[Rfam]
SAM riboswitch aptamer (S box leader): a 107-nucleotide RNA from Priestia megaterium.
The organism belongs to Priestia megaterium, within Bacteria.

RNA sequence: UUCUUAUCAAGAGAGACGGAGGGACUGGCCCUAUGAUGUCUCGGCAACUGGCUGUACGCAGUGCGGUGCCAAAUCCAGCAGACGAUGUUUCGUUUGGAAGAUGAGAA
Numbered sequence: 001u002u003c004u005u006a007u008c009a010a011g012a013g014a015g016a017c018g019g020a021g022g023g024a025c026u027g028g029c030c031c032u033a034u035g036a037u038g039u040c041u042c043g044g045c046a047a048c049u050g051g052c053u054g055u056a057c058g059c060a061g062u063g064c065g066g067u068g069c070c071a072a073a074u075c076c077a078g079c080a081g082a083c084g085a086u087g088u089u090u091c092g093u094u095u096g097g098a099a100g101a102u103g104a105g106a107a
Stems, first nucleotide, its partner, number of pairs: 001107008013042005021031003025078004043070004048066002051062004074099001079096006

About this RNA:
A search with the family's covariance model found it, with a score of 91 bits.